[Rfam]
RNA sequence: GCUUGAAAAGGGCAAACCGCUCGAAAGAGCGGGACGCAAAGCCACUGGCCUAAGUUCUGAUAUCGCGGAAUACGGCAGCAGGGCUGCCGGG
Numbered sequence: 001g002c003u004u005g006a007a008a009a010g011g012g013c014a015a016a017c018c019g020c021u022c023g024a025a026a027g028a029g030c031g032g033g034a035c036g037c038a039a040a041g042c043c044a045c046u047g048g049c050c051u052a053a054g055u056u057c058u059g060a061u062a063u064c065g066c067g068g069a070a071u072a073c074g075g076c077a078g079c080a081g082g083g084c085u086g087c088c089g090g091g
Stems, first nucleotide, its partner, number of pairs: 012037002017032006040085004045081003048076003055070004